[Rfam]
RNA sequence: GAGAAGGAUUCGGGAGAGACAACUUAAUUGCGCCGAAGGGGCAUAAACUCUCAGGCAAAAGGACCGGAUUUGGACG
Numbered sequence: 001g002a003g004a005a006g007g008a009u010u011c012g013g014g015a016g017a018g019a020c021a022a023c024u025u026a027a028u029u030g031c032g033c034c035g036a037a038g039g040g041g042c043a044u045a046a047a048c049u050c051u052c053a054g055g056c057a058a059a060a061g062g063a064c065c066g067g068a069u070u071u072g073g074a075c076g
Base pairs, nucleotide, nucleotide: 006071007070008069009068010067011066012065013064020030021029022028032056033055034054035052036051039050040049041048
The family of this 76-nucleotide sequence from Eisenbergiella massiliensis is "Glycine riboswitch aptamer". From the family's description: This family represents the bacterial glycine riboswitch.